RNA sequence: GGAUUGAUGAUGACUUUAAAAAUAGAUCUCACUGUAAUCUGAACAAAAUGAGUGACAAAAUCACUUAUGUGAACUGAGGUCC
Numbered sequence: 001g002g003a004u005u006g007a008u009g010a011u012g013a014c015u016u017u018a019a020a021a022a023u024a025g026a027u028c029u030c031a032c033u034g035u036a037a038u039c040u041g042a043a044c045a046a047a048a049u050g051a052g053u054g055a056c057a058a059a060a061u062c063a064c065u066u067a068u069g070u071g072a073a074c075u076g077a078g079g080u081c082c
Stems, first nucleotide, its partner, number of pairs: 001082005028052003033045002
This 82-nucleotide sequence from Moschus moschiferus belongs to the Rfam family "Small nucleolar RNA SNORD116". Rfam links the family to the GO terms RNA processing and nucleolus. By type it is a C/D-box small nucleolar RNA.